[Rfam]
This 181-nucleotide RNA from Sediminispirochaeta smaragdinae belongs to the Rfam family "6S / SsrS RNA". A search with the family's covariance model found it, with a score of 74 bits. Rfam 15.1 lists 5,006 matches to the family in 4,638 species. E. coli 6S RNA was the first non coding RNA to be sequenced, but its function was unknown until recently. It consists of 184 nucleotides that fold into an extended hairpin structure with a large single-stranded internal bulge. The 6S RNA specifically associates with RNA polymerase holoenzyme containing the sigma70 specificity factor. This interaction represses expression from a sigma70-dependent promoter during stationary phase. 6S RNA homologs have recently been identified in most bacterial genomes. Many Gram-positive species have two copies of 6S RNA. In Bacillus subtilis, both copies appear to interact with RNA polymerase holoenzyme containing the housekeeping sigma factor and be expressed during different stages of growth. In many proteobacteria, 6S RNA may be processed from a transcript encoding homologs of the E. coli YgfA protein which is a putative 5-formyltetrahydrofolate cycloligase activity.
RNA sequence: CUUUUCCUGCGAUGUACGGGAGGGGAUCGUCAAUCUCUUGGGACAAAAAUAUAAAACGGGAUUCCUUCAUUUCGUGGUUGAAUUGACCGUCCUCGAGACGGACAGGAUUCCACGUUGCGGAAACCCACUUGAACCAUUGGGUUCAAGAGAUUUUUUCUCCAAGCGGCAUCGCGGGUUUUAC
Numbered sequence: 001c002u003u004u005u006c007c008u009g010c011g012a013u014g015u016a017c018g019g020g021a022g023g024g025g026a027u028c029g030u031c032a033a034u035c036u037c038u039u040g041g042g043a044c045a046a047a048a049a050u051a052u053a054a055a056a057c058g059g060g061a062u063u064c065c066u067u068c069a070u071u072u073c074g075u076g077g078u079u080g081a082a083u084u085g086a087c088c089g090u091c092c093u094c095g096a097g098a099c100g101g102a103c104a105g106g107a108u109u110c111c112a113c114g115u116u117g118c119g120g121a122a123a124c125c126c127a128c129u130u131g132a133a134c135c136a137u138u139g140g141g142u143u144c145a146a147g148a149g150a151u152u153u154u155u156u157c158u159c160c161a162a163g164c165g166g167c168a169u170c171g172c173g174g175g176u177u178u179u180a181c
Stems, first nucleotide, its partner, number of pairs: 006175010017165002034150004039145004058126003062122004067117001069116001073114005087101005
Taxonomically the source falls in Sediminispirochaeta smaragdinae (Bacteria, Pseudomonadati, Spirochaetota, Spirochaetales). It is annotated as a non-coding RNA gene.